[Rfam]
RNA sequence: UCGUUUUUAUACCGUGUACCUUGUAUAAGUUUAGAAAUAUGGCCUAAACGUCUCUACCAAGCUGCCGUAAAAAGCUUGACUACAAUGGUAAACCUAAGACAU
Numbered sequence: 001u002c003g004u005u006u007u008u009a010u011a012c013c014g015u016g017u018a019c020c021u022u023g024u025a026u027a028a029g030u031u032u033a034g035a036a037a038u039a040u041g042g043c044c045u046a047a048a049c050g051u052c053u054c055u056a057c058c059a060a061g062c063u064g065c066c067g068u069a070a071a072a073a074g075c076u077u078g079a080c081u082a083c084a085a086u087g088g089u090a091a092a093c094c095u096a097a098g099a100c101a102u
Base pairs, nucleotide, nucleotide: 019087021085022084023083024082025081029049030048031047032046033045034044058078059077060076061075062074063073
This 102-nucleotide RNA from Weizmannia acidilactici belongs to the Rfam family "Purine riboswitch aptamer".